Shown here is a 127-nucleotide RNA sequence from Mustela putorius, a member of the family "Small nucleolar RNA SNORA32". Rfam links the family to the GO terms nucleolus and RNA processing. It scores 117 bits against the family's covariance model. The base pairs follow the family's consensus structure, which was predicted with RNAfold. ACA32 is a member of the H/ACA class of snoRNA that guide the sites of modification of uridines to pseudouridines. By type it is an H/ACA-box small nucleolar RNA. The source organism's lineage runs through Eukaryota, Eumetazoa, Deuterostomia, Caniformia and Mustela putorius.

[Rfam]
Nucleotides: 127
Base pairs, nucleotide, nucleotide: 003053004052005051007049010046011045012044026041027040028039029038069120070119071118072117076113077112078111079110091106092105093104
Number, partner (000 for none) and nucleotide at each position: 001000u002000g003053g004052u005051c006000a007049u008000u009000a010046c011045u012044a013000a014000g015000g016000c017000u018000u019000u020000g021000a022000g023000a024000g025000u026041g027040u028039a029038g030000u031000u032000u033000c034000u035000c036000a037000u038029u039028u040027g041026c042000u043000g044012u045011g046010g047000a048000c049007a050000a051005g052004a053003c054000c055000a056000u057000a058000a059000c060000a061000a062000a063000a064000a065000a066000u067000u068000u069120c070119c071118c072117a073000c074000u075000a076113g077112g078111u079110u080000u081000u082000u083000u084000u085000u086000c087000u088000a089000c090000c091106u092105g093104c094000u095000a096000c097000u098000u099000u100000g101000c102000u103000a104093g105092c106091a107000u108000u109000c110079a111078g112077c113076c114000u115000a116000u117072u118071g119070g120069g121000a122000a123000c124000a125000u126000u127000u